Shown here is a 67-nucleotide sequence, a member of the family "DUF805 RNA". The base pairs follow the family's consensus structure, which is taken from published work. Rfam classes the family as a cis-regulatory element. Its Rfam clan is "DUF805 clan".
RNA sequence: GGGCAAUGGAAGACCGAGACCAUUUUAAAACGUGGCGAGUUCGAAAAGCCUUAUGAGUAGAGGAAAC
Numbered sequence: 001g002g003g004c005a006a007u008g009g010a011a012g013a014c015c016g017a018g019a020c021c022a023u024u025u026u027a028a029a030a031c032g033u034g035g036c037g038a039g040u041u042c043g044a045a046a047a048g049c050c051u052u053a054u055g056a057g058u059a060g061a062g063g064a065a066a067c
Stems, first nucleotide, its partner, number of pairs: 006023004034050003041061002